[Rfam]
Nucleotides: 166
Base pairs, nucleotide, nucleotide: 003164004163006162007161008160009159014070015069016068017067020063021062022061023060024059025058026056027055028054029053030052032050034047036045037044038043075120076119077118078117079116080115081114082113085110086109087108088107092103093102094101095100123154124153125152127150128149129148134144135143136142137141
Number, partner (000 for none) and nucleotide at each position: 001000u002000g003164g004163g005000a006162u007161a008160u009159u010000a011000a012000g013000a014070u015069u016068u017067g018000c019000a020063a021062u022061a023060a024059a025058g026056c027055c028054c029053a030052g031000a032050c033000c034047g035000a036045c037044u038043g039000c040000u041000u042000g043038c044037a045036g046000g047034c048000g049000a050032g051000g052030c053029u054028g055027g056026g057000a058025c059024u060023u061022u062021a063020u064000u065000a066000g067017c068016a069015a070014a071000u072000c073000a074000a075120a076119c077118a078117c079116a080115c081114a082113u083000g084000a085110g086109c087108a088107u089000g090000u091000a092103g093102g094101a095100c096000g097000a098000u099000a100095g101094u102093c103092c104000g105000g106000a107088a108087u109086g110085c111000g112000a113082a114081u115080g116079u117078g118077u119076g120075u121000c122000a123154c124153g125152g126000a127150u128149c129148c130000g131000a132000g133000a134144g135143c136142a137141c138000g139000a140000a141137g142136u143135g144134c145000g146000g147000a148129g149128g150127a151000g152125c153124c154123g155000u156000g157000u158000u159009a160008a161007u162006a163004c164003c165000c166000g

A member of the RNA family "Clostridiales-1 RNA", 166 nucleotides long. It is one of the family's seed sequences. The base pairs follow the family's consensus structure, which is taken from published work.